RNA sequence: UGUGGGAAAUGAAGACAAAUUGAAAUGUUCAACAGAGGUAGAUACUAUGCUGAACUCUAUUUGCACGUCAGUCUGAUCCCUCU
Numbered sequence: 001u002g003u004g005g006g007a008a009a010u011g012a013a014g015a016c017a018a019a020u021u022g023a024a025a026u027g028u029u030c031a032a033c034a035g036a037g038g039u040a041g042a043u044a045c046u047a048u049g050c051u052g053a054a055c056u057c058u059a060u061u062u063g064c065a066c067g068u069c070a071g072u073c074u075g076a077u078c079c080c081u082c083u
Base pairs, nucleotide, nucleotide: 002082004080005079006078007077

This 83-nucleotide sequence from Cucumis melo belongs to the Rfam family "Small nucleolar RNA Z122". The organism belongs to Cucumis, within Eukaryota. The match comes from Rfam's covariance-model search (58 bits). Rfam classes the family as a C/D-box small nucleolar RNA.